[Rfam]
RNA sequence: GCUGACUUGAUCCAUGCGGACAAUUCUUCGACUUGACUGAUUUGUUCGUGUGGCUCGAGUUAGAU
Dot-bracket structure: .((.((((((.((...((.((((.((............)).)))).))...)).)))))).))..
Shown here is a 65-nucleotide sequence from Asbolus verrucosus, a member of the family "mir-375 microRNA precursor family".
The family has 47 seed sequences and 824 matches in Rfam 15.1.
Pairs were carried over by alignment from the consensus structure, which was predicted with RNAalifold.
For this family Rfam cites "The developmental miRNA profiles of zebrafish as determined by small RNA cloning" (Chen et al., Genes Dev, 2005).